The family of this 149-nucleotide RNA from Ktedonobacteria bacterium brp13 is "Group II catalytic intron D1-D4-7". About the family: Group II introns are found in rRNA, tRNA and mRNA of organelles in fungi, plants and protists, and also in mRNA in bacteria. The literature on the family includes a 2001 paper in EMBO J by Chu et al., "Control of branch-site choice by a group II intron". It scores 84 bits against the family's covariance model. Pairs were carried over by alignment from the consensus structure.

RNA sequence: CCUGUUGUUCCACCAACAGUAUCCUUGAGCGGCAAAGCGGAGAGGUAACGACCCGUCAGAAGCCCGCUGACAACGACCCUAGAUCGAUAGAUCGACAGGAAAUCCGUAAGGCAAUCCUGAUGUCUCCUAGCAUCAAAGGGGACAGGGGG
Numbered sequence: 001c002c003u004g005u006u007g008u009u010c011c012a013c014c015a016a017c018a019g020u021a022u023c024c025u026u027g028a029g030c031g032g033c034a035a036a037g038c039g040g041a042g043a044g045g046u047a048a049c050g051a052c053c054c055g056u057c058a059g060a061a062g063c064c065c066g067c068u069g070a071c072a073a074c075g076a077c078c079c080u081a082g083a084u085c086g087a088u089a090g091a092u093c094g095a096c097a098g099g100a101a102a103u104c105c106g107u108a109a110g111g112c113a114a115u116c117c118u119g120a121u122g123u124c125u126c127c128u129a130g131c132a133u134c135a136a137a138g139g140g141g142a143c144a145g146g147g148g149g
Stems, first nucleotide, its partner, number of pairs: 002019006028068005033059001037056004044049001080095001082093004096119004104111002123142006